Glycine riboswitch aptamer: a 116-nucleotide sequence from Microcella putealis. The organism belongs to Microcella, within Bacteria. It scores 38 bits against the family's covariance model.
RNA sequence: CCACUCUGAAAAGCAGGGCGAGCAUCCCUUUCUGGGUGCCUGACCCUCGCCCACGGUGAAAGCGCGACCGGCACCGCCCGGCCCGUGAAGCUCUCAGGCACCAUGACAGAGGGGGA
Numbered sequence: 001c002c003a004c005u006c007u008g009a010a011a012a013g014c015a016g017g018g019c020g021a022g023c024a025u026c027c028c029u030u031u032c033u034g035g036g037u038g039c040c041u042g043a044c045c046c047u048c049g050c051c052c053a054c055g056g057u058g059a060a061a062g063c064g065c066g067a068c069c070g071g072c073a074c075c076g077c078c079c080g081g082c083c084c085g086u087g088a089a090g091c092u093c094u095c096a097g098g099c100a101c102c103a104u105g106a107c108a109g110a111g112g113g114g115g116a
Stems, first nucleotide, its partner, number of pairs: 001114002004111005015047004049099003053094001056093001058091001062086002